[Rfam]
RNA sequence: AAGUGCAGGGAACAGUUGCUGCGUUGUAUUUGCUUUAUUUUAUAGAUACAUCACAGUGGCUGUUCUUUAUAUUC
Numbered sequence: 001a002a003g004u005g006c007a008g009g010g011a012a013c014a015g016u017u018g019c020u021g022c023g024u025u026g027u028a029u030u031u032g033c034u035u036u037a038u039u040u041u042a043u044a045g046a047u048a049c050a051u052c053a054c055a056g057u058g059g060c061u062g063u064u065c066u067u068u069a070u071a072u073u074c
Base pairs, nucleotide, nucleotide: 004071005070007068008067009066010065011064012063013062016059017058018057019056020055021054023052025050026049027048028047
This 74-nucleotide sequence from Bactrocera dorsalis belongs to the Rfam family "mir-6 microRNA precursor family". The family's consensus secondary structure was predicted with PFOLD. Rfam describes the family as follows. This family consists of the microRNA (miRNA) precursor mir-6 which appears to be Drosophila specific. The match comes from Rfam's covariance-model search (62 bits).